[Rfam]
RNA: Alphaproteobacteria transfer-messenger RNA
Organism: Altericroceibacterium indicum
Nucleotides: 342
Stems, first nucleotide, its partner, number of pairs: 039054005058195005069188007084174003088171003094110005111156007196211004201222003309323004314341003319336001
Number, partner (000 for none) and nucleotide at each position: 001000u002000c003000c004000c005000u006000u007000c008000a009000c010000a011000a012000g013000g014000c015000c016000u017000u018000u019000g020000u021000a022000a023000u024000c025000u026000c027000u028000a029000u030000a031000u032000a033000g034000g035000g036000a037000u038000u039054g040053c041052c042051g043050g044000u045000u046000u047000c048000g049000a050043c051042c052041g053040g054039c055000u056000a057000u058195g059194g060193c061192g062191a063000u064000a065000a066000a067000u068000u069188g070187u071186g072185a073184u074183g075182u076000g077000u078000a079000a080000u081000a082000g083000a084174c085173g086172c087000a088171g089170c090169g091000g092000a093000c094110c095109c096108g097107g098106g099000g100000g101000c102000a103000g104000u105000a106098c107097c108096c109095g110094g111156c112155g113154g114153c115152u116151c117150c118000a119000c120000c121000a122000c123000a124000a125000a126000c127000u128000c129000c130000g131000c132000u133000u134000c135000g136000g137000c138000g139000g140000a141000u142000g143000u144000u145000c146000u147000g148000a149000c150117g151116g152115g153114g154113c155112c156111g157000a158000a159000c160000c161000a162000g163000g164000a165000u166000c167000g168000a169090c170089g171088u172086g173085u174084g175000u176000u177000c178000a179000a180000a181000g182075a183074c184073a185072u186071u187070a188069u189000u190000u191062u192061c193060g194059c195058c196211c197210g198209g199208g200000c201222u202221g203220a204000g205000u206000a207000a208199c209198c210197c211196g212000u213000u214000u215000a216000a217000g218000g219000c220203u221202c222201a223000c224000a225000a226000c227000a228000c229000a230000c231000a232000a233000g234000u235000g236000c237000c238000a239000a240000c241000g242000a243000u244000a245000a246000c247000g248000a249000a250000g251000c252000a253000c254000u255000c256000g257000c258000a259000a260000u261000c262000g263000c264000u265000g266000c267000g268000u269000a270000a271000u272000u273000u274000u275000a276000a277000g278000g279000g280000c281000u282000a283000a284000c285000g286000c287000c288000c289000c290000g291000a292000a293000u294000u295000u296000a297000c298000a299000a300000a301000g302000c303000u304000a305000a306000g307000c308000g309323c310322g311321g312320u313000u314341g315340g316339a317000c318000c319336c320312a321311c322310c323309g324000g325000g326000c327000a328000a329000c330000a331000g332000a333000a334000g335000g336319g337000a338000u339316u340315c341314c342000a